[Rfam]
RNA sequence: CGCGGUCCUCGGUAGUGGCCUCCGGGACGCAGCGAUCAUUCGCUGCACGCCCGUGGGCCUCGAUCGAAGACCGGG
Numbered sequence: 001c002g003c004g005g006u007c008c009u010c011g012g013u014a015g016u017g018g019c020c021u022c023c024g025g026g027a028c029g030c031a032g033c034g035a036u037c038a039u040u041c042g043c044u045g046c047a048c049g050c051c052c053g054u055g056g057g058c059c060u061c062g063a064u065c066g067a068a069g070a071c072c073g074g075g
Stems, first nucleotide, its partner, number of pairs: 001075001003073005009067005017059005023053004028049002
RNA: Actino-pnp RNA